This 89-nucleotide RNA from Actinotalea ferrariae belongs to the Rfam family "ZMP/ZTP riboswitch aptamer (pfl RNA motif)". Taxonomically the source falls in Actinotalea ferrariae (Bacteria, Micrococcales, Cellulomonadaceae, Actinotalea).
RNA sequence: GGCCCCGGCCGCGACUGGCGAGGGUGGAAACGACCACCGGGGAGCGACCGGCAGUGCCCUGCAGCGCACCGCCCGCCUGGGUGCCUGGG
Numbered sequence: 001g002g003c004c005c006c007g008g009c010c011g012c013g014a015c016u017g018g019c020g021a022g023g024g025u026g027g028a029a030a031c032g033a034c035c036a037c038c039g040g041g042g043a044g045c046g047a048c049c050g051g052c053a054g055u056g057c058c059c060u061g062c063a064g065c066g067c068a069c070c071g072c073c074c075g076c077c078u079g080g081g082u083g084c085c086u087g088g089g
Base pairs, nucleotide, nucleotide: 005051006050007049008048010046011045012044015041016040017077018076019075020074024037025036026035027034066084067083068082069081070080